[Rfam]
RNA: c-di-AMP riboswitch aptamer (ydaO/yuaA leader)
Organism: Sporotomaculum syntrophicum
RNA sequence: AAUAUUUUGUCACCGAAUUCCUAUUAUGGAAGCGGGGGAACCAUUUUAGGGGUGAAAUGCGAUUAGCAUGGGGCUAACACUUCGGUCCUAACCCGUCAGCUAACCUCGUAGGUGUGGAAAGUGAGGCACC
Numbered sequence: 001a002a003u004a005u006u007u008u009g010u011c012a013c014c015g016a017a018u019u020c021c022u023a024u025u026a027u028g029g030a031a032g033c034g035g036g037g038g039a040a041c042c043a044u045u046u047u048a049g050g051g052g053u054g055a056a057a058u059g060c061g062a063u064u065a066g067c068a069u070g071g072g073g074c075u076a077a078c079a080c081u082u083c084g085g086u087c088c089u090a091a092c093c094c095g096u097c098a099g100c101u102a103a104c105c106u107c108g109u110a111g112g113u114g115u116g117g118a119a120a121g122u123g124a125g126g127c128a129c130c
Base pairs, nucleotide, nucleotide: 011114012113013112014111018031019030020029032109033108034107035106036105037104042049050094051093052092058068059067060066071088072087073086074085